This 51-nucleotide RNA sequence from Pseudooceanicola albus belongs to the Rfam family "Xanthine riboswitch aptamer (NMT1 RNA)". Rfam links the family to the GO term purine nucleobase binding. The base pairs follow the family's consensus structure, which is taken from published work. A search with the family's covariance model found it, with a score of 45 bits.
Nucleotides: 051
Base pairs, nucleotide, nucleotide: 005047006046007045008044009043010042015036018038019037021034022033023032024031025030
Number, partner (000 for none) and nucleotide at each position: 001000a002000c003000c004000c005047g006046g007045a008044g009043c010042a011000g012000a013000a014000g015036c016000g017000g018038g019037c020000a021034g022033c023032g024031c025030g026000g027000c028000a029000a030025c031024g032023c033022g034021c035000g036015g037019g038018u039000c040000a041000u042010u043009g044008c045007u046006c047005u048000c049000c050000u051000a